The record is a 71-nucleotide sequence from Silurus meridionalis, which matches "mir-29 microRNA precursor family" in Rfam. The family's consensus secondary structure was predicted with PFOLD. A search with the family's covariance model found it, with a score of 54 bits. From the family's description: This family represents the microRNA (miRNA) precursors mir-29. Taxonomically the source falls in Silurus (Eukaryota, Teleostomi, Euteleostomi, Siluriformes).
RNA sequence: GGAAACUGAUUUGAAAUGGUGGCUUGAAGUGUUUAUAUAAAUCAUCUAGCACCAUUUGAAAUCAGUGUUCU
Numbered sequence: 001g002g003a004a005a006c007u008g009a010u011u012u013g014a015a016a017u018g019g020u021g022g023c024u025u026g027a028a029g030u031g032u033u034u035a036u037a038u039a040a041a042u043c044a045u046c047u048a049g050c051a052c053c054a055u056u057u058g059a060a061a062u063c064a065g066u067g068u069u070c071u
Stems, first nucleotide, its partner, number of pairs: 001071004005066008014057001016055006025048001026046002